[Rfam]
RNA sequence: GCCGGUCCUCGGUAGUGGUUGUCGGGCCAAGGAGUCCCGAGAACUUCGAUCGAUGGCCGGC
Numbered sequence: 001g002c003c004g005g006u007c008c009u010c011g012g013u014a015g016u017g018g019u020u021g022u023c024g025g026g027c028c029a030a031g032g033a034g035u036c037c038c039g040a041g042a043a044c045u046u047c048g049a050u051c052g053a054u055g056g057c058c059g060g061c
Base pairs, nucleotide, nucleotide: 001061002060003059004058005057006056007055009053010052011051012050013049017045018044019043020042022040023039024038025037026036028034
Shown here is a 61-nucleotide RNA sequence from a Pseudonocardiaceae bacterium, a member of the family "Actino-pnp RNA".
It scores 65 bits against the family's covariance model.
Pairs were carried over by alignment from the consensus structure, which is taken from published work.